[Rfam]
RNA sequence: GCCAAUGCGAAGAACAGGACAAGACUUCCCAGGCAGUUAUGUUUUCAGAGAGUCUCCGGGCGGUGUGAGGAGACAGCAUAGCCAGGGCGGCUAUCACCUGUGAGCAGUCAGGGUGAACGUGAAAUCAGUAACCCGGACCGGAAUUCCUCCGUUAUAGGGAAACCUGUUAAUUCAGCAGAAACUGAACGACGGGACUGAGAGACCGGUAAAUCCGGUAAUUAGAAGUGGUAACGCGGAGAUCAUAUCAUUCGUCUUCUGA
Numbered sequence: 001g002c003c004a005a006u007g008c009g010a011a012g013a014a015c016a017g018g019a020c021a022a023g024a025c026u027u028c029c030c031a032g033g034c035a036g037u038u039a040u041g042u043u044u045u046c047a048g049a050g051a052g053u054c055u056c057c058g059g060g061c062g063g064u065g066u067g068a069g070g071a072g073a074c075a076g077c078a079u080a081g082c083c084a085g086g087g088c089g090g091c092u093a094u095c096a097c098c099u100g101u102g103a104g105c106a107g108u109c110a111g112g113g114u115g116a117a118c119g120u121g122a123a124a125u126c127a128g129u130a131a132c133c134c135g136g137a138c139c140g141g142a143a144u145u146c147c148u149c150c151g152u153u154a155u156a157g158g159g160a161a162a163c164c165u166g167u168u169a170a171u172u173c174a175g176c177a178g179a180a181a182c183u184g185a186a187c188g189a190c191g192g193g194a195c196u197g198a199g200a201g202a203c204c205g206g207u208a209a210a211u212c213c214g215g216u217a218a219u220u221a222g223a224a225g226u227g228g229u230a231a232c233g234c235g236g237a238g239a240u241c242a243u244a245u246c247a248u249u250c251g252u253c254u255u256c257u258g259a
Stems, first nucleotide, its partner, number of pairs: 007105002015100004029087002033083001041077003052074006108137002111134004139151003202216005222256004233252005